RNA sequence: UGCAAUACCCAUCAAAGGAGUAGUUCCCUGACCUGGAGCUACUUUACCAUAUUUUGAAUGU
Numbered sequence: 001u002g003c004a005a006u007a008c009c010c011a012u013c014a015a016a017g018g019a020g021u022a023g024u025u026c027c028c029u030g031a032c033c034u035g036g037a038g039c040u041a042c043u044u045u046a047c048c049a050u051a052u053u054u055u056g057a058a059u060g061u
Stems, first nucleotide, its partner, number of pairs: 017045011
Plastid-psbN 5UTR RNA: a 61-nucleotide RNA from Castanea mollissima. The source organism's lineage runs through Eukaryota, Viridiplantae, Streptophyta, Embryophyta and Castanea. From the family's description: Plastid psbN is a non-coding RNA (ncRNA) recognised in plastids. It was reported as a conserved 11 stem-loop in the prime untranslated region (5UTR) of psbN genes. It has been reported that the motif is retained in a subset of mature transcripts in barley, which can suggests a possible role in transcript alternative 5 prime processing. The base pairs follow the family's consensus structure, which was predicted with LocARNA.